This 104-nucleotide RNA sequence from Oidiodendron maius belongs to the Rfam family "tRNA". By type it is a transfer RNA. The source organism's lineage runs through Eukaryota, Ascomycota, leotiomyceta, sordariomyceta and Oidiodendron maius. The base pairs follow the family's consensus structure, which is taken from published work. The match comes from Rfam's covariance-model search (47 bits).
[Rfam]
RNA sequence: GACAUGAUGGCCGAGUGGUCUAAGGCGGCGGUUUUAAGUUACGAUUUUGGUCGGAAUUAACACCGCUCUCGAAAGAGGCGUGAGUUCAAACCUCACUCAUGUCA
Numbered sequence: 001g002a003c004a005u006g007a008u009g010g011c012c013g014a015g016u017g018g019u020c021u022a023a024g025g026c027g028g029c030g031g032u033u034u035u036a037a038g039u040u041a042c043g044a045u046u047u048u049g050g051u052c053g054g055a056a057u058u059a060a061c062a063c064c065g066c067u068c069u070c071g072a073a074a075g076a077g078g079c080g081u082g083a084g085u086u087c088a089a090a091c092c093u094c095a096c097u098c099a100u101g102u103c104a
Base pairs, nucleotide, nucleotide: 001103002102003101004100005099006098007097010026011025012024028066029065030064031063032062080096081095082094083093084092